Rfam assigns this 252-nucleotide sequence from Trifolium subterraneum to the family "MIR2655 microRNA precursor family". NCBI's taxonomy places the organism under Eukaryota, Streptophyta, Euphyllophyta, rosids, Trifolium. The family has 25 seed sequences and 892 matches in Rfam 15.1. It scores 126 bits against the family's covariance model.
[Rfam]
RNA sequence: CCCUUAUCUUUUAAAAAUUUCAGGUUGGUCCUUUAUCUUUUCUGCAGGUUUCAAGUUGGUCCCUUCCGUCAAAUUUUUCACUAUUACCGUUAAAUUUGUACACGUGGCAAACUAAUUUGGACACGUGGCACACUUGGACAAUUGACAUGUGUCCAAAUUUAACGGUAAUAGUGAAAAUUUUGACGGGAGGGACCAACUUGAAACCUGCAGAAAAGAUAAGGGACCAACAUGAAACUUUUAAAAGAUAAGGGA
Numbered sequence: 001c002c003c004u005u006a007u008c009u010u011u012u013a014a015a016a017a018u019u020u021c022a023g024g025u026u027g028g029u030c031c032u033u034u035a036u037c038u039u040u041u042c043u044g045c046a047g048g049u050u051u052c053a054a055g056u057u058g059g060u061c062c063c064u065u066c067c068g069u070c071a072a073a074u075u076u077u078u079c080a081c082u083a084u085u086a087c088c089g090u091u092a093a094a095u096u097u098g099u100a101c102a103c104g105u106g107g108c109a110a111a112c113u114a115a116u117u118u119g120g121a122c123a124c125g126u127g128g129c130a131c132a133c134u135u136g137g138a139c140a141a142u143u144g145a146c147a148u149g150u151g152u153c154c155a156a157a158u159u160u161a162a163c164g165g166u167a168a169u170a171g172u173g174a175a176a177a178u179u180u181u182g183a184c185g186g187g188a189g190g191g192a193c194c195a196a197c198u199u200g201a202a203a204c205c206u207g208c209a210g211a212a213a214a215g216a217u218a219a220g221g222g223a224c225c226a227a228c229a230u231g232a233a234a235c236u237u238u239u240a241a242a243a244g245a246u247a248a249g250g251g252a
Stems, first nucleotide, its partner, number of pairs: 002250007024228002027225003031221013045207003